Rfam assigns this 63-nucleotide sequence from Stegodyphus mimosarum to the family "mir-375 microRNA precursor family". A reference for the family is Chen et al. (2005), "The developmental miRNA profiles of zebrafish as determined by small RNA cloning", Genes Dev. Its family is annotated with RISC complex and miRNA-mediated post-transcriptional gene silencing in the Gene Ontology. The source organism's lineage runs through Eukaryota, Arachnida, Araneae, Eresoidea and Stegodyphus.
RNA sequence: ACUGACUCGAAUCCUGCGAGCAAAGCUGUGUAUCGUGUUUUGUUCGUUCGGCUCGAGUUAGGA
Numbered sequence: 001a002c003u004g005a006c007u008c009g010a011a012u013c014c015u016g017c018g019a020g021c022a023a024a025g026c027u028g029u030g031u032a033u034c035g036u037g038u039u040u041u042g043u044u045c046g047u048u049c050g051g052c053u054c055g056a057g058u059u060a061g062g063a
Stems, first nucleotide, its partner, number of pairs: 002061002005058006012051002017046002020043004025038002